The family of this 108-nucleotide RNA from Muribaculaceae bacterium Isolate-104 is "Bacteroidales small SRP". Its Rfam clan is "SRP clan". The organism belongs to Muribaculaceae, within Bacteria. The base pairs follow the family's consensus structure, which is taken from published work. The family's RNA type in Rfam is non-coding RNA gene. It scores 94 bits against the family's covariance model.
[Rfam]
RNA sequence: UUGCAGCGGGUAAGUCCUACACGACCAGCUCCCCGGGAACUCCGUCAGGUCUUGAUCGAAGCAGCGGUACCGGGUCGUAGCGGUGCGAUGUAGGUCGCUUACCCUUUU
Number, nucleotide and partner (000 for none) at each position: 001u000002u000003g000004c000005a000006g000007c000008g104009g103010g102011u101012a100013a099014g098015u097016c000017c093018u092019a091020c090021a089022c087023g086024a084025c083026c000027a000028g000029c000030u000031c000032c000033c000034c000035g000036g000037g000038a000039a000040c000041u000042c000043c000044g000045u000046c000047a000048g000049g000050u000051c000052u000053u000054g000055a000056u000057c000058g000059a000060a000061g000062c000063a000064g000065c000066g000067g000068u000069a000070c000071c000072g000073g000074g000075u000076c000077g000078u000079a000080g000081c000082g000083g025084u024085g000086c023087g022088a000089u021090g020091u019092a018093g017094g000095u000096c000097g015098c014099u013100u012101a011102c010103c009104c008105u000106u000107u000108u000